[Rfam]
The record is a 249-nucleotide RNA from Bacillus methanolicus, which matches "T-box leader" in Rfam. Rfam classes the family as a cis-regulatory leader. The family has 48 seed sequences and 19,395 matches in Rfam 15.1. Rfam's curators write: Uncharged tRNA acts as the effector for transcription antitermination of genes in the T-box leader family. T-boxes are found upstream of many aminoacyl-tRNA synthetase genes and some amino acid biosynthetic genes usually in Gram-positive bacteria. The anticodon of a specific tRNA base pairs to a specifier sequence within the T-box motif, and the NCCA acceptor tail of the tRNA base pairs to a conserved bulge in the T-box antiterminator hairpin.

RNA sequence: AUAAAAACGAUGAUGGAGAAGAGUAGCUUUUUCACACCAUUCAGGGAGAAAAUGCCGUAGACUGGAAGCAUUUUUAUGGGAAGAAAAGUGAAGUUCACCUCCGGAGUUGGCAUCGGGACCAUUUCAGAAAGAAAUGUAAAGAUGCACCGGCGCAUGCCGUUAUCCGAAUGAAGUGAACACGCUUUAGUUGACUUUUGGCAAAGCGUGUUAAAAAGGGUGGUACCGCGAAUCCAAUACCUCGUCCCUUUA
Dot-bracket structure: ......((......((((.......((((((.........(........((((((............))))))..).......)))))).........))))...))..(((((..........................)))))..(((......)))................((((((((((..............))))))))))....((((.......((((..........))))))))...